RNA sequence: AAUGCUACCUUACAGGUGUCACAGGUGUGGCUACUUUACUAUGUCUGUGUCAUUGGGUGGCAGAAAGAAAGUGGCUUUGUCUACGCUCAGUGUUCAAAACCCCGUGAGCACUCAGAAUGGUUAAUGGCCCGACACAU
Numbered sequence: 001a002a003u004g005c006u007a008c009c010u011u012a013c014a015g016g017u018g019u020c021a022c023a024g025g026u027g028u029g030g031c032u033a034c035u036u037u038a039c040u041a042u043g044u045c046u047g048u049g050u051c052a053u054u055g056g057g058u059g060g061c062a063g064a065a066a067g068a069a070a071g072u073g074g075c076u077u078u079g080u081c082u083a084c085g086c087u088c089a090g091u092g093u094u095c096a097a098a099a100c101c102c103c104g105u106g107a108g109c110a111c112u113c114a115g116a117a118u119g120g121u122u123a124a125u126g127g128c129c130c131g132a133c134a135c136a137u
Base pairs, nucleotide, nucleotide: 003062004061005060006059007058008057009056010055021048022047023046024045073129074128075127081120082119083118086115087114091110092109093108094107095106096105